[Rfam]
RNA sequence: UCACUCAGCGAGGGGUGCCGACGCCAGCCUCGGACCAGUUCCGAGCGCUGGGCGGCUGAGAUCCAAACCCUUUGAACCUGAUCCGGCUCGUACCGGCGGAGGGACUGCUGCUUCUGUUGUUG
Numbered sequence: 001u002c003a004c005u006c007a008g009c010g011a012g013g014g015g016u017g018c019c020g021a022c023g024c025c026a027g028c029c030u031c032g033g034a035c036c037a038g039u040u041c042c043g044a045g046c047g048c049u050g051g052g053c054g055g056c057u058g059a060g061a062u063c064c065a066a067a068c069c070c071u072u073u074g075a076a077c078c079u080g081a082u083c084c085g086g087c088u089c090g091u092a093c094c095g096g097c098g099g100a101g102g103g104a105c106u107g108c109u110g111c112u113u114c115u116g117u118u119g120u121u122g
Base pairs, nucleotide, nucleotide: 006110007109008108009107010106011071012070013069014068016065017056018055019054020053077102078101079100083096084095085094086093
Overview:
Shown here is a 122-nucleotide sequence, a member of the family "TPP riboswitch aptamer (THI element)". About the family: Vitamin B(1) in its active form thiamin pyrophosphate (TPP) is an essential coenzyme that is synthesised by coupling of pyrimidine and thiazole moieties in bacteria. Pairs were carried over by alignment from the consensus structure, which is taken from published work. A search with the family's covariance model found it, with a score of 63 bits.